[Rfam]
RNA sequence: GAAAAAGGUUUCUGCUGCGGGUGGCACAGGAGGUGUACAGUGAAGGUCCACUCUUAUUGCAGAAUCACCACCAACAGAGUUUGAAAACACAAUUUUUAAACCAGAGGUUGUGAAUGAUAAAUUGCCGUGGGCCCCCUG
Numbered sequence: 001g002a003a004a005a006a007g008g009u010u011u012c013u014g015c016u017g018c019g020g021g022u023g024g025c026a027c028a029g030g031a032g033g034u035g036u037a038c039a040g041u042g043a044a045g046g047u048c049c050a051c052u053c054u055u056a057u058u059g060c061a062g063a064a065u066c067a068c069c070a071c072c073a074a075c076a077g078a079g080u081u082u083g084a085a086a087a088c089a090c091a092a093u094u095u096u097u098a099a100a101c102c103a104g105a106g107g108u109u110g111u112g113a114a115u116g117a118u119a120a121a122u123u124g125c126c127g128u129g130g131g132c133c134c135c136c137u138g
Stems, first nucleotide, its partner, number of pairs: 008088004013026005027059003031055003035051002060083004065078002106135002110132002114128001116126001118124002
RNA: U11 spliceosomal RNA
Organism: Amphiprion percula